This 164-nucleotide RNA sequence from Clostridiales bacterium CHKCI001 belongs to the Rfam family "Clostridiales-1 RNA".
Rfam classes the family as a small RNA.
Rfam 15.1 lists 1,172 matches to the family in 137 species.
NCBI's taxonomy places the organism under Bacteria, Bacillati, Bacillota, Clostridia, Eubacteriales.
It scores 89 bits against the family's covariance model.
The base pairs follow the family's consensus structure, which is taken from published work.
RNA sequence: UAUAAAAGUCCCAGACAGCAGCCAUGAGCCAGACCGUGUUCACACGGUCUGGCUCAUGGCUAUUGGACGGAUUAACCUGUAUGAACAAGAAGAGCGACAGCUCGGAUUGCGAAUACAGGUGGCGAUUGCGAGAACACUAAAGUACGGAGCAAUGGAUUUUUAUA
Numbered sequence: 001u002a003u004a005a006a007a008g009u010c011c012c013a014g015a016c017a018g019c020a021g022c023c024a025u026g027a028g029c030c031a032g033a034c035c036g037u038g039u040u041c042a043c044a045c046g047g048u049c050u051g052g053c054u055c056a057u058g059g060c061u062a063u064u065g066g067a068c069g070g071a072u073u074a075a076c077c078u079g080u081a082u083g084a085a086c087a088a089g090a091a092g093a094g095c096g097a098c099a100g101c102u103c104g105g106a107u108u109g110c111g112a113a114u115a116c117a118g119g120u121g122g123c124g125a126u127u128g129c130g131a132g133a134a135c136a137c138u139a140a141a142g143u144a145c146g147g148a149g150c151a152a153u154g155g156a157u158u159u160u161u162a163u164a
Stems, first nucleotide, its partner, number of pairs: 001164006009071003017064002020061013034047005075120008086109003092103004123155001125153005136143002